[Rfam]
RNA sequence: CGCCGGCGUGGACGAGGUGCUAACCACCAGCACGCCGGGGAUACUGGACUCUGGGGGGUAGUUCUGAGAUGUCCAGCGCGCUGGCGAAGGCAGAGGCGCGGAACGAAAGUCUGACGGGC
Numbered sequence: 001c002g003c004c005g006g007c008g009u010g011g012a013c014g015a016g017g018u019g020c021u022a023a024c025c026a027c028c029a030g031c032a033c034g035c036c037g038g039g040g041a042u043a044c045u046g047g048a049c050u051c052u053g054g055g056g057g058g059u060a061g062u063u064c065u066g067a068g069a070u071g072u073c074c075a076g077c078g079c080g081c082u083g084g085c086g087a088a089g090g091c092a093g094a095g096g097c098g099c100g101g102a103a104c105g106a107a108a109g110u111c112u113g114a115c116g117g118g119c
Stems, first nucleotide, its partner, number of pairs: 001040001003038008027054004045075005061104004077100006089115001091113004
RNA: Betaproteobacteria-1 RNA